[Rfam]
RNA: HDV ribozyme from F. prausnitzii
RNA sequence: GAGGAACAAAAGUUAGCCCACCUCCACGUGGUGUUCCCUGGGCAACGCUGCAGUUCUUUGGGAAAUUUCAUCGGCUAAGAGGCUACU
Numbered sequence: 001g002a003g004g005a006a007c008a009a010a011a012g013u014u015a016g017c018c019c020a021c022c023u024c025c026a027c028g029u030g031g032u033g034u035u036c037c038c039u040g041g042g043c044a045a046c047g048c049u050g051c052a053g054u055u056c057u058u059u060g061g062g063a064a065a066u067u068u069c070a071u072c073g074g075c076u077a078a079g080a081g082g083c084u085a086c087u
Stems, first nucleotide, its partner, number of pairs: 001039001003037005020032003046073002049070002